[Rfam]
RNA: Mammalian CPEB3 ribozyme
Organism: Alligator mississippiensis
RNA sequence: UCUUCAUCUUCCCCGUAGCAGAAGCAUUCAUGUCAUGGCCCUGUCAGAUUCUAACGAAUCUGUCAAUUCUGCU
Numbered sequence: 001u002c003u004u005c006a007u008c009u010u011c012c013c014c015g016u017a018g019c020a021g022a023a024g025c026a027u028u029c030a031u032g033u034c035a036u037g038g039c040c041c042u043g044u045c046a047g048a049u050u051c052u053a054a055c056g057a058a059u060c061u062g063u064c065a066a067u068u069c070u071g072c073u
Stems, first nucleotide, its partner, number of pairs: 013038002017073007024036001045062007